RNA sequence: GUAGGCGUGGUUGCCGUCCAACCUGCGUCCGUGCCGGUCGUGACCGAACUGCCGGGCCGCACCAAUGCCUUCCUCGUCGCGCAGGUGCGCGCGCGGGUCGACGGCAUCGUGCUGCGCCGCGAAUUCACCGAGGGCUCGGUCGUGAAGGCGGGCCAGCGCCUGUACAAGAUCGA
Numbered sequence: 001g002u003a004g005g006c007g008u009g010g011u012u013g014c015c016g017u018c019c020a021a022c023c024u025g026c027g028u029c030c031g032u033g034c035c036g037g038u039c040g041u042g043a044c045c046g047a048a049c050u051g052c053c054g055g056g057c058c059g060c061a062c063c064a065a066u067g068c069c070u071u072c073c074u075c076g077u078c079g080c081g082c083a084g085g086u087g088c089g090c091g092c093g094c095g096g097g098u099c100g101a102c103g104g105c106a107u108c109g110u111g112c113u114g115c116g117c118c119g120c121g122a123a124u125u126c127a128c129c130g131a132g133g134g135c136u137c138g139g140u141c142g143u144g145a146a147g148g149c150g151g152g153c154c155a156g157c158g159c160c161u162g163u164a165c166a167a168g169a170u171c172g173a
Stems, first nucleotide, its partner, number of pairs: 004053004008047001010045001011043004016038001018037002022033001023031001056149003059143002063139001067135002072133001074131002078093005094121002097118001099116002102114005157172002160168002